[Rfam]
RNA: MIR8008 microRNA precursor family
RNA sequence: AUUUCCAGAAAAGCGACGGACAGUGUCCUUUUAUCUGUCGCUUUUCUGGGAUUUC
Dot-bracket structure: (.((((((((((((((((((.............)))))))))))))))))).)..